[Rfam]
This 81-nucleotide RNA sequence from Nannospalax galili belongs to the Rfam family "mir-3473 microRNA precursor family". The base pairs follow the family's consensus structure, which was predicted with RNAalifold. The family has 5 seed sequences and 1,094 matches in Rfam 15.1. Rfam links the family to the GO terms cellular response to mechanical stimulus, RISC complex and miRNA-mediated post-transcriptional gene silencing. NCBI's taxonomy places the organism under Eukaryota, Vertebrata, Sarcopterygii, Dipnotetrapodomorpha, Nannospalax.
RNA sequence: ACCGCUGAGCCAUCUCUCCAGCCCCAGCCUCAGUUUUUUAAAAAAAUGUUUUAUUGGGGGCUGGAGAGAUGGCUCAGCGGU
Numbered sequence: 001a002c003c004g005c006u007g008a009g010c011c012a013u014c015u016c017u018c019c020a021g022c023c024c025c026a027g028c029c030u031c032a033g034u035u036u037u038u039u040a041a042a043a044a045a046a047u048g049u050u051u052u053a054u055u056g057g058g059g060g061c062u063g064g065a066g067a068g069a070u071g072g073c074u075c076a077g078c079g080g081u
Stems, first nucleotide, its partner, number of pairs: 002080023